[Rfam]
RNA sequence: AAAAAAUAAGUAAAGCUGACGACGCUCCUUUCCUCAUGGGGCCCUGGUGUGCAAUGGCUGCAAACAGUAGUCUCUUUGGUAGUGUAUGCAGCCUGUUGCUUGUAUAGGUUGUUCUAAGGUACCUUAGAGACAUUC
Numbered sequence: 001a002a003a004a005a006a007u008a009a010g011u012a013a014a015g016c017u018g019a020c021g022a023c024g025c026u027c028c029u030u031u032c033c034u035c036a037u038g039g040g041g042c043c044c045u046g047g048u049g050u051g052c053a054a055u056g057g058c059u060g061c062a063a064a065c066a067g068u069a070g071u072c073u074c075u076u077u078g079g080u081a082g083u084g085u086a087u088g089c090a091g092c093c094u095g096u097u098g099c100u101u102g103u104a105u106a107g108g109u110u111g112u113u114c115u116a117a118g119g120u121a122c123c124u125u126a127g128a129g130a131c132a133u134u135c
Base pairs, nucleotide, nucleotide: 001050019048020047022045026041027040028039078123079122080121089111090110091109092108093107094106
Shown here is a 135-nucleotide RNA from Otolemur garnettii, a member of the family "Small nucleolar RNA SNORA70". Taxonomically the source falls in Otolemur (Eukaryota, Chordata, Primates, Galagidae). It scores 116 bits against the family's covariance model. It is annotated as an H/ACA-box small nucleolar RNA. snoRNA U70 seems to be exclusive to mammals and is a member of the H/ACA class of snoRNA which contain H (ANANNA) and ACA box motifs. H/ACA box snoRNAs are involved in the conversion of uridines to pseudouridines (5-ribosyluracil) a constituent of structural RNAs (transfer, ribosomal, small nuclear, and small nucleolar). The family's consensus secondary structure was predicted with PFOLD.